[Rfam]
RNA sequence: CCCUUUGUUGGGGAGUAGCUUUCGGCUCUGAAGCCGAGAUCGCGUCAACAUACUUGCGCUUCGGCGCAUGGCGCGAUCAGCGAACCUAGUUCGCCUUGCGAGACCAGCGUGCAUCGGACCCGCACCGGCCGGGACCGAUGCCGCUGUCGCUCGUCCGGUGAGGUUCGU
Numbered sequence: 001c002c003c004u005u006u007g008u009u010g011g012g013g014a015g016u017a018g019c020u021u022u023c024g025g026c027u028c029u030g031a032a033g034c035c036g037a038g039a040u041c042g043c044g045u046c047a048a049c050a051u052a053c054u055u056g057c058g059c060u061u062c063g064g065c066g067c068a069u070g071g072c073g074c075g076a077u078c079a080g081c082g083a084a085c086c087u088a089g090u091u092c093g094c095c096u097u098g099c100g101a102g103a104c105c106a107g108c109g110u111g112c113a114u115c116g117g118a119c120c121c122g123c124a125c126c127g128g129c130c131g132g133g134a135c136c137g138a139u140g141c142c143g144c145u146g147u148c149g150c151u152c153g154u155c156c157g158g159u160g161a162g163g164u165u166c167g168u
Base pairs, nucleotide, nucleotide: 023036024035025034038078039077040076041075042074043073044072045071046070047069055068056067057066058065059064080168081167082166083165084164085163086162